[Rfam]
RNA sequence: CAAAGCAAGCAGAAGCGCCCGCUUCUCACCUGAUUGACGCAUGAAGCUGUUGCCAGGUAUGAUGGGAUUCAUUUUUAGUAAAUGACCGAAGUGUGGGCGUAUUGUGCGCCCGCACUUUUUUUCAUGA
Numbered sequence: 001c002a003a004a005g006c007a008a009g010c011a012g013a014a015g016c017g018c019c020c021g022c023u024u025c026u027c028a029c030c031u032g033a034u035u036g037a038c039g040c041a042u043g044a045a046g047c048u049g050u051u052g053c054c055a056g057g058u059a060u061g062a063u064g065g066g067a068u069u070c071a072u073u074u075u076u077a078g079u080a081a082a083u084g085a086c087c088g089a090a091g092u093g094u095g096g097g098c099g100u101a102u103u104g105u106g107c108g109c110c111c112g113c114a115c116u117u118u119u120u121u122u123c124a125u126g127a
Stems, first nucleotide, its partner, number of pairs: 011026006028058003036051003039047002092114010
Rfam assigns this 127-nucleotide RNA from Alkalihalophilus pseudofirmus to the family "Ribosomal protein L20 leader". A search with the family's covariance model found it, with a score of 85 bits. Rfam links the family to the GO term regulation of gene expression. This family is a putative r-protein leader autoregulatory structure found in B. subtilis and other low-GC Gram-positive bacteria. It is located in the 5' untranslated regions of mRNAs encoding initiation factor 3 followed by ribosomal proteins L35 and L20 (infC-rpmI-rplT). A Rho-independent transcription terminator structure that is probably involved in regulation is included at the 3' end. The source organism's lineage runs through Bacteria, Bacillati, Bacillota, Bacillaceae and Alkalihalophilus pseudofirmus. The family's consensus secondary structure was predicted with CMfinder.